[Rfam]
RNA sequence: GAAAUUGAAUAAAGUCCGCUGUAGAAAGCAGGCGCCGUAAGGCUUAAUGUCCUGCCGAGGUUGGGAGACACACCGAUGGAUAGUAAUUUGGCAUUCUUAACCUCUGCAAACGCGGGGGUUUUCUGUUGAGUUU
Number, nucleotide and partner (000 for none) at each position: 001g000002a000003a000004a000005u000006u000007g000008a000009a000010u000011a000012a000013a000014g000015u000016c000017c000018g000019c000020u000021g000022u000023a000024g000025a000026a000027a000028g055029c054030a053031g052032g051033c000034g043035c042036c041037g000038u000039a000040a000041g036042g035043c034044u000045u000046a000047a000048u000049g000050u000051c032052c031053u030054g029055c028056c000057g000058a000059g000060g000061u000062u000063g000064g000065g000066a000067g000068a000069c000070a000071c000072a000073c000074c000075g000076a000077u000078g000079g000080a000081u000082a000083g000084u000085a000086a000087u000088u000089u000090g000091g000092c000093a000094u000095u000096c000097u000098u000099a000100a000101c118102c117103u116104c115105u114106g113107c112108a000109a000110a000111c000112g107113c106114g105115g104116g103117g102118g101119u000120u000121u000122u000123c000124u000125g000126u000127u000128g000129a000130g000131u000132u000133u000

A member of the RNA family "Ribosomal protein L10 leader" from Desulfosporosinus sp. Tol-M, 133 nucleotides long. NCBI's taxonomy places the organism under Bacteria, Bacillati, Clostridia, Desulfitobacteriaceae, Desulfosporosinus. On this family, see Zengel and Lindahl, Prog Nucleic Acid Res Mol Biol 1994: "Diverse mechanisms for regulating ribosomal protein synthesis in Escherichia coli". This family is a putative r-protein leader autoregulatory structure found in B. subtilis and other low-GC Gram-positive bacteria. It is located in the 5' untranslated regions of mRNAs encoding ribosomal proteins L10 and L12 (rplJ-rplL).